[Rfam]
RNA sequence: AUCAAGACGUACGGCAAUGGAGAGCUUAUGAAUCGAGUCAGAUCUGGAAGGAAGCAGCUAUAAGUAGGAUUCUCCAUGUGCGGUACAUUUUUUAUGAAA
Numbered sequence: 001a002u003c004a005a006g007a008c009g010u011a012c013g014g015c016a017a018u019g020g021a022g023a024g025c026u027u028a029u030g031a032a033u034c035g036a037g038u039c040a041g042a043u044c045u046g047g048a049a050g051g052a053a054g055c056a057g058c059u060a061u062a063a064g065u066a067g068g069a070u071u072c073u074c075c076a077u078g079u080g081c082g083g084u085a086c087a088u089u090u091u092u093u094a095u096g097a098a099a
Stems, first nucleotide, its partner, number of pairs: 004093004009086004014081001015078001017077006025068005036059003043052003
The record is a 99-nucleotide RNA sequence from Granulicatella sp. WM01, which matches "Bacterial small signal recognition particle RNA" in Rfam. By type it is a non-coding RNA gene. From the family's description: The signal recognition particle (SRP) is a universally conserved ribonucleoprotein involved in the co-translational targeting of proteins to membranes. The family's consensus secondary structure is taken from published work.